[Rfam]
RNA sequence: AGGCCCAAGGAGAGAGAGGCAGGGUCUGAUCCGCAGCCUCCGUGGCAGCUGUUGAUCAGCUGUUGCCUCUCUCUUUCCAGGCU
Numbered sequence: 001a002g003g004c005c006c007a008a009g010g011a012g013a014g015a016g017a018g019g020c021a022g023g024g025u026c027u028g029a030u031c032c033g034c035a036g037c038c039u040c041c042g043u044g045g046c047a048g049c050u051g052u053u054g055a056u057c058a059g060c061u062g063u064u065g066c067c068u069c070u071c072u073c074u075u076u077c078c079a080g081g082c083u
Stems, first nucleotide, its partner, number of pairs: 010075013024061001026059006034051004
Shown here is an 83-nucleotide RNA sequence from Cnephaeus nilssonii, a member of the family "mir-574 microRNA precursor family". Rfam links the family to the GO terms miRNA-mediated post-transcriptional gene silencing and RISC complex. On this family, see Nielsen et al., Anim Genet 2010: "MicroRNA identity and abundance in porcine skeletal muscles determined by deep sequencing". It scores 90 bits against the family's covariance model. Rfam 15.1 lists 4,084 matches to the family in 7 species.